[Rfam]
RNA sequence: UUCUCGUCCCAGUUCUUCCCAAAGUUGAGAAAAGCUGGGUUGAGAGG
Numbered sequence: 001u002u003c004u005c006g007u008c009c010c011a012g013u014u015c016u017u018c019c020c021a022a023a024g025u026u027g028a029g030a031a032a033a034g035c036u037g038g039g040u041u042g043a044g045a046g047g
Stems, first nucleotide, its partner, number of pairs: 001046005008039005016031003020027002